[Rfam]
RNA sequence: GGACGAGCCUCUGGAGAGACUCUUAUGAGCACCGAAGGAGAAAGCCUAAAGGCGAAACUCUCAGGUAAAAGGACAGGGGAUAGAUA
Numbered sequence: 001g002g003a004c005g006a007g008c009c010u011c012u013g014g015a016g017a018g019a020c021u022c023u024u025a026u027g028a029g030c031a032c033c034g035a036a037g038g039a040g041a042a043a044g045c046c047u048a049a050a051g052g053c054g055a056a057a058c059u060c061u062c063a064g065g066u067a068a069a070a071g072g073a074c075a076g077g078g079g080a081u082a083g084a085u086a
Base pairs, nucleotide, nucleotide: 006081008079009078010077011076012075013074020029021028022027031066032065033064034062035061038060039059040058044053045052
RNA: Glycine riboswitch aptamer